This 72-nucleotide sequence from Sorex araneus belongs to the Rfam family "Small nucleolar RNA SNORD28". On this family, see Tycowski et al., Nature 1996: "A mammalian gene with introns instead of exons generating stable RNA products". The family's consensus secondary structure was predicted with PFOLD. NCBI's taxonomy places the organism under Eukaryota, Sarcopterygii, Mammalia, Eutheria, Sorex. Its family is annotated with nucleolus and RNA processing in the Gene Ontology.
RNA sequence: GUCAGAUGAUUUGAAUCGAUAAUGCUGAUCCUCUGUGAGGUACAAUAAUAGCAUGUUAGAGUUCUGAUGACG
Dot-bracket structure: ((((...............................................................)))).